Source information
Shown here is a 54-nucleotide RNA from Novosphingobium aromaticivorans, a member of the family "terC RNA". Taxonomically the source falls in Novosphingobium aromaticivorans (Bacteria, Pseudomonadati, Pseudomonadota, Novosphingobium). It is one of the family's seed sequences. The family's RNA type in Rfam is cis-regulatory element.
RNA sequence: CCUGCGGGCCGGGCCCCUCUGACGAUCCUGUGAUCGUGAUGUCGGACCGCAUCG
Numbered sequence: 001c002c003u004g005c006g007g008g009c010c011g012g013g014c015c016c017c018u019c020u021g022a023c024g025a026u027c028c029u030g031u032g033a034u035c036g037u038g039a040u041g042u043c044g045g046a047c048c049g050c051a052u053c054g
Stems, first nucleotide, its partner, number of pairs: 006048002009045004022037006